[Rfam]
Nucleotides: 133
Stems, first nucleotide, its partner, number of pairs: 001058001003056002007049001010046001012044006020035004069125001071123004076118001080115002084110002087107006
Number, partner (000 for none) and nucleotide at each position: 001058g002000c003056c004055c005000c006000g007049u008000g009000g010046u011000u012044g013043c014042u015041g016040g017039a018000c019000u020035c021034u022033g023032c024000u025000g026000u027000g028000c029000g030000g031000u032023g033022c034021a035020g036000u037000g038000c039017u040016c041015c042014g043013g044012u045000u046010g047000g048000g049007a050000g051000g052000a053000u054000g055004g056003g057000c058001c059000c060000a061000a062000a063000g064000c065000a066000a067000c068000g069125c070000u071123g072122u073121g074120a075000u076118u077000g078000a079000c080115g081114c082000a083000g084110g085109g086000a087107g088106g089105c090104u091103g092102u093000g094000a095000c096000c097000c098000g099000u100000g101000a102092g103091c104090a105089g106088c107087c108000g109085c110084c111000a112000c113000a114081g115080c116000c117000c118076g119000c120074u121073c122072a123071c124000a125069g126000g127000c128000a129000c130000a131000c132000c133000c
The family of this 133-nucleotide RNA sequence from Leptocoma aspasia is "Small nucleolar RNA SNORA84". Rfam links the family to the GO terms nucleolus and RNA processing. The match comes from Rfam's covariance-model search (84 bits). Rfam classes the family as an H/ACA-box small nucleolar RNA. NCBI's taxonomy places the organism under Eukaryota, Deuterostomia, Teleostomi, Sauropsida, Leptocoma.